The record is a 440-nucleotide part of an RNA from Acinetobacter pittii, which matches "Bacterial large subunit ribosomal RNA" in Rfam.
NCBI's taxonomy places the organism under Bacteria, Pseudomonadota, Moraxellaceae, Acinetobacter, Acinetobacter pittii.
[Rfam]
RNA sequence: CUCCCCGAAAGCUAUUUAGGUAGCGCCUCGGACGAAUACCAUAGGGGGUAGAGCACUGUUUCGGCUAGGGGGUCAUCCCGACUUACCAAACCGAUGCAAACUCCGAAUACCUAUGAGUACUAUCCGGGAGACAGACUGCGGGUGCUAACGUCCGUAGUCAAGAGGAAAACAAUCCAGACCGCCAGCUAAGGCCCCAAAAUCAUAGUUAAGUGGGAAACGAUCAGUGGGACUUCGAACAGGUAGGAGGUUGGCUUAGAAGCAGCCACCCUUUAAAGAAAGCGUAAUAGCUCACUAGUCGAGUCGGCCUGCGCGGAAGAUGUAACGGGGCUAAAACUAUGUGCCGAAGCUGCGGAUUUGACAUUAGUCAAGUGGUAGGGGAGCGUUCUGUAAGCCGAUGAAGGUGUAUUGAGAAGUAUGCUGGAGGUAUCAGAAGUGCGAAU
Numbered sequence: 001c002u003c004c005c006c007g008a009a010a011g012c013u014a015u016u017u018a019g020g021u022a023g024c025g026c027c028u029c030g031g032a033c034g035a036a037u038a039c040c041a042u043a044g045g046g047g048g049u050a051g052a053g054c055a056c057u058g059u060u061u062c063g064g065c066u067a068g069g070g071g072g073u074c075a076u077c078c079c080g081a082c083u084u085a086c087c088a089a090a091c092c093g094a095u096g097c098a099a100a101c102u103c104c105g106a107a108u109a110c111c112u113a114u115g116a117g118u119a120c121u122a123u124c125c126g127g128g129a130g131a132c133a134g135a136c137u138g139c140g141g142g143u144g145c146u147a148a149c150g151u152c153c154g155u156a157g158u159c160a161a162g163a164g165g166a167a168a169a170c171a172a173u174c175c176a177g178a179c180c181g182c183c184a185g186c187u188a189a190g191g192c193c194c195c196a197a198a199a200u201c202a203u204a205g206u207u208a209a210g211u212g213g214g215a216a217a218c219g220a221u222c223a224g225u226g227g228g229a230c231u232u233c234g235a236a237c238a239g240g241u242a243g244g245a246g247g248u249u250g251g252c253u254u255a256g257a258a259g260c261a262g263c264c265a266c267c268c269u270u271u272a273a274a275g276a277a278a279g280c281g282u283a284a285u286a287g288c289u290c291a292c293u294a295g296u297c298g299a300g301u302c303g304g305c306c307u308g309c310g311c312g313g314a315a316g317a318u319g320u321a322a323c324g325g326g327g328c329u330a331a332a333a334c335u336a337u338g339u340g341c342c343g344a345a346g347c348u349g350c351g352g353a354u355u356u357g358a359c360a361u362u363a364g365u366c367a368a369g370u371g372g373u374a375g376g377g378g379a380g381c382g383u384u385c386u387g388u389a390a391g392c393c394g395a396u397g398a399a400g401g402u403g404u405a406u407u408g409a410g411a412a413g414u415a416u417g418c419u420g421g422a423g424g425u426a427u428c429a430g431a432a433g434u435g436c437g438a439a440u
Stems, first nucleotide, its partner, number of pairs: 001380006011024005026130001027128006036121001040115006051104001052102002057098003061094004068087002070084005134159010164175003179352004184348003190342003199339001201338006218312002224309005230303001233300001239296001241294003245269003250264003270274001275290001279288002353370007381435001383432005391425003400419008
The family's consensus secondary structure is taken from published work.